[Rfam]
Rfam assigns this 114-nucleotide RNA from Vitis vinifera to the family "Small nucleolar RNA Z278".

RNA sequence: GAUAGUGAAGAUAUAUCCAUGAUUUGGAGGUGUAGACAGCUCCAAGACUCUGUUUACAGGGAGAACCUACUUGGUUGCUACACUUUUUAUGAAAUUACUGGAUAUUUCUUAGUC
Numbered sequence: 001g002a003u004a005g006u007g008a009a010g011a012u013a014u015a016u017c018c019a020u021g022a023u024u025u026g027g028a029g030g031u032g033u034a035g036a037c038a039g040c041u042c043c044a045a046g047a048c049u050c051u052g053u054u055u056a057c058a059g060g061g062a063g064a065a066c067c068u069a070c071u072u073g074g075u076u077g078c079u080a081c082a083c084u085u086u087u088u089a090u091g092a093a094a095u096u097a098c099u100g101g102a103u104a105u106u107u108c109u110u111a112g113u114c
Stems, first nucleotide, its partner, number of pairs: 001114003048061005
The family's consensus secondary structure was predicted with PFOLD. The match comes from Rfam's covariance-model search (40 bits). The family has 7 seed sequences and 1,130 matches in Rfam 15.1. Rfam describes the family as follows. snoZ278 is a C/D box small nucleolar RNA. Its methylation guide targets have not been reported. Rfam links the family to the GO terms nucleolus and RNA processing. The organism belongs to Vitis, within Eukaryota. The literature on the family includes a 2003 paper in Nucleic Acids Res by Chen et al., "The high diversity of snoRNAs in plants: identification and comparative study of 120 snoRNA genes from Oryza sativa".